Source information: The record is a 256-nucleotide RNA from Methanotorris igneus, which matches "Archaeal RNase P" in Rfam. Gene Ontology terms of the family: ribonuclease P activity, multimeric ribonuclease P complex and tRNA processing. Rfam classes the family as a ribozyme. Clan: RNaseP clan. Rfam's curators write: Ribonuclease P (RNase P) is a ubiquitous endoribonuclease, found in archaea, bacteria and eukarya as well as chloroplasts and mitochondria. Its best characterised activity is the generation of mature 5'-ends of tRNAs by cleaving the 5'-leader elements of precursor-tRNAs. Cellular RNase Ps are ribonucleoproteins. The base pairs follow the family's consensus structure, which is taken from published work.

RNA sequence: GUAAGGGGGCUGGCGACUUUCCCCACUUUGUGGGGAGGAAGCUCCGCCCACCCGUUAUGUGCAGGUGUUCCCCGAGAGGGGACGGGCAUGCUAUAGAAACGACACGGCCUUGGAACAGAUGACAAUGAUGCCUGUAAAGGUUGAGGAGUUCCAAGGAGCCGGUGAAACGAGCAUGCCCCUGCACGGGUGCAAGGGGGUUUCCCCCGCUUAGCCGAAUGUCGCCGAAAUUACAGAAGGCGGGCUAUAGCCCCCAUAC
Dot-bracket structure: (((.(((((((((((((...(((((.....)))))....[[[.[[[[[((((........(((((...(((((....))))).((...((((............(((((((((((..............((........)).......))))))))..)))........))))..)))))))...))))...((((.....))))............))))))............]]]]]]]]..))))))).)))